[Rfam]
Nucleotides: 348
Stems, first nucleotide, its partner, number of pairs: 040051004055185005065178002067174004079163002083160003089105005106145007186201003192211002195209003314329004320345006
Number, partner (000 for none) and nucleotide at each position: 001000c002000a003000c004000a005000u006000u007000g008000c009000a010000g011000c012000a013000c014000g015000g016000c017000g018000c019000c020000a021000a022000c023000c024000g025000u026000c027000c028000u029000a030000u031000a032000u033000a034000c035000g036000u037000c038000c039000u040051g041050u042049c043048c044000u045000u046000c047000g048043g049042g050041a051040c052000u053000a054000u055185g056184g057183a058182c059181a060000u061000a062000a063000a064000c065178g066177c067174g068173c069172u070171c071000g072000a073000a074000a075000u076000a077000a078000g079163c080162g081000g082000a083160u084159c085158g086000g087000a088000c089105c090104c091103g092102g093101g094000g095000g096000c097000g098000g099000u100000a101093c102092c103091c104090g105089g106145c107144g108143g109142c110141u111140c112139c113000a114000c115000c116000a117000a118000a119000a120000u121000c122000c123000c124000u125000u126000g127000u128000u129000g130000g131000g132000g133000g134000a135000u136000c137000a138000u139112g140111g141110g142109g143108c144107c145106g146000a147000a148000a149000c150000a151000g152000g153000a154000u155000c156000g157000a158085c159084g160083a161000a162080c163079g164000u165000g166000u167000a168000a169000a170000g171070g172069g173068g174067u175000u176000u177066g178065c179000u180000u181059u182058g183057u184056c185055c186201c187200g188199g189000c190000g191000g192211g193210g194000u195209a196208c197207c198000a199188c200187c201186g202000u203000u204000a205000u206000c207197g208196g209195u210193c211192c212000g213000u214000a215000a216000a217000g218000c219000a220000u221000a222000a223000u224000u225000g226000c227000c228000a229000a230000c231000a232000a233000c234000a235000a236000u237000c238000g239000u240000g241000c242000u243000c244000c245000g246000g247000u248000u249000g250000c251000u252000g253000u254000c255000g256000c257000c258000g259000c260000u261000u262000a263000a264000g265000c266000g267000g268000u269000g270000c271000c272000a273000a274000a275000a276000g277000c278000c279000g280000a281000a282000a283000u284000c285000u286000a287000a288000g289000c290000c291000c292000u293000u294000g295000c296000a297000c298000c299000u300000a301000g302000c303000c304000g305000u306000g307000u308000a309000a310000g311000g312000c313000g314329g315328g316327g317326u318000u319000c320345g321344c322343a323342g324341g325340c326317a327316c328315c329314u330000g331000g332000c333000a334000a335000c336000a337000g338000a339000a340325g341324c342323c343322u344321g345320c346000a347000c348000u